This 120-nucleotide RNA belongs to the Rfam family "Glutamine riboswitch aptamer (glnA leader)".

RNA sequence: UACGUUCAUUUUGCGGUCAGCCGCAAAACGGAAGUAGGAGGAUAAUCAAUAUUUCCUUGUGGUAAGGGAAUUCAGCAUCCCGGACGGGAUCAAUUGAGAUAUCUACCGAAGGAACGCGUU
Numbered sequence: 001u002a003c004g005u006u007c008a009u010u011u012u013g014c015g016g017u018c019a020g021c022c023g024c025a026a027a028a029c030g031g032a033a034g035u036a037g038g039a040g041g042a043u044a045a046u047c048a049a050u051a052u053u054u055c056c057u058u059g060u061g062g063u064a065a066g067g068g069a070a071u072u073c074a075g076c077a078u079c080c081c082g083g084a085c086g087g088g089a090u091c092a093a094u095u096g097a098g099a100u101a102u103c104u105a106c107c108g109a110a111g112g113a114a115c116g117c118g119u120u
Stems, first nucleotide, its partner, number of pairs: 003116005009028008031117001037107002